RNA sequence: UAUCUGGGCCUGGUAACUCCACCACCGUUGGCGUUAUCAAUCCGCCAACGGGGUAAGAGUUCCCUUUCCUAGACG
Numbered sequence: 001u002a003u004c005u006g007g008g009c010c011u012g013g014u015a016a017c018u019c020c021a022c023c024a025c026c027g028u029u030g031g032c033g034u035u036a037u038c039a040a041u042c043c044g045c046c047a048a049c050g051g052g053g054u055a056a057g058a059g060u061u062c063c064c065u066u067u068c069c070u071a072g073a074c075g
Stems, first nucleotide, its partner, number of pairs: 001075001003073006012064002015061005023053001025051009
RNA: mir-2765 microRNA precursor family